Small nucleolar RNA SNORD72: an 83-nucleotide sequence from Aptenodytes forsteri. The base pairs follow the family's consensus structure. The match comes from Rfam's covariance-model search (54 bits). Rfam classes the family as a C/D-box small nucleolar RNA. Rfam describes the family as follows. snoRNA HBII-240 belongs to the CD family of snoRNAs. It is the human orthologue of the mouse MBII-240 and is predicted to guide 2'O-ribose methylation of the large 28S rRNA at residue U4590. For this family Rfam cites "RNomics: an experimental approach that identifies 201 candidates for novel, small, non-messenger RNAs in mouse" (Huttenhofer et al., EMBO J, 2001).

RNA sequence: CACUUGUUAAUAAGAUGUUUCUUACUAAAAAUGUCUGAUCGUAUGAACUCCGUAGUGAUUUCAGUGUACUACUGAGAUAAGCU
Numbered sequence: 001c002a003c004u005u006g007u008u009a010a011u012a013a014g015a016u017g018u019u020u021c022u023u024a025c026u027a028a029a030a031a032u033g034u035c036u037g038a039u040c041g042u043a044u045g046a047a048c049u050c051c052g053u054a055g056u057g058a059u060u061u062c063a064g065u066g067u068a069c070u071a072c073u074g075a076g077a078u079a080a081g082c083u
Base pairs, nucleotide, nucleotide: 003081004080005079006078007077008076
Dot-bracket structure: ..((((((...................................................................))))))..